Rfam assigns this 100-nucleotide RNA sequence from Halothermothrix orenii to the family "THF (Tetrahydrofolate) riboswitch aptamer". NCBI's taxonomy places the organism under Bacteria, Bacillati, Halanaerobiales, Halothermotrichaceae, Halothermothrix orenii. The sequence is in the family's curated seed alignment. The literature on the family includes a 2014 paper in Chem Biol by Trausch and Batey, "A disconnect between high-affinity binding and efficient regulation by antifolates and purines in the tetrahydrofolate riboswitch". Gene Ontology term of the family: tetrahydrofolate metabolic process.

RNA sequence: GGCAGAGUAGGUGGCUAUGCGUAAAUAGUGCUUAAGGAUGGGACGUUGCCUUAAGACGAAAUGCCUAUCAGGCUGCGGUAUAGCCACCGCGUCCGCUGUC
Numbered sequence: 001g002g003c004a005g006a007g008u009a010g011g012u013g014g015c016u017a018u019g020c021g022u023a024a025a026u027a028g029u030g031c032u033u034a035a036g037g038a039u040g041g042g043a044c045g046u047u048g049c050c051u052u053a054a055g056a057c058g059a060a061a062u063g064c065c066u067a068u069c070a071g072g073c074u075g076c077g078g079u080a081u082a083g084c085c086a087c088c089g090c091g092u093c094c095g096c097u098g099u100c
Base pairs, nucleotide, nucleotide: 001100002099003098004097005096010088011087012086013085014084015083016082017081018080019079020077021076022075028057029056031055032054033053034052035051036050037049041094042093043092044091045090063073064072065071
Tetrahydrofolate (THF) riboswitch was first reported for Ames et al. as an RNA motif in 5' untranslated (5'-UTR)regions of folate transport and biosynthesis genes in Firmicutes genomes.